The family of this 123-nucleotide RNA from Drosophila virilis is "U5 spliceosomal RNA". Rfam 15.1 lists 28,527 matches to the family in 2,489 species. A reference for the family is Zwieb (1997), "The uRNA database", Nucleic Acids Res. From the family's description: U5 RNA is a component of both types of known spliceosome. The precise function of this molecule is unknown, though it is known that the 5' loop is required for splice site selection and p220 binding, and that both the 3' stem-loop and the Sm site are important for Sm protein binding and cap methylation. By type it is a spliceosomal small nuclear RNA.

[Rfam]
RNA sequence: UCACUCUGGCUUCUCUUCAGUUGUCGAAUAAAUCUUUCGCCUUUUACUAAAGAUUUCCGUGGAGAGGAGCACUCUAAUGAGUCUAAAUUGAAUUUUUCGUGUGCCUGGUGACUUUUGUUGCCG
Numbered sequence: 001u002c003a004c005u006c007u008g009g010c011u012u013c014u015c016u017u018c019a020g021u022u023g024u025c026g027a028a029u030a031a032a033u034c035u036u037u038c039g040c041c042u043u044u045u046a047c048u049a050a051a052g053a054u055u056u057c058c059g060u061g062g063a064g065a066g067g068a069g070c071a072c073u074c075u076a077a078u079g080a081g082u083c084u085a086a087a088u089u090g091a092a093u094u095u096u097u098c099g100u101g102u103g104c105c106u107g108g109u110g111a112c113u114u115u116u117g118u119u120g121c122c123g
Base pairs, nucleotide, nucleotide: 003082004081005080006079009070010069011068012067013066014065015064016063017062018061019060030056031055032054033053034052035051036050037049100123107122108121109120110119111118112117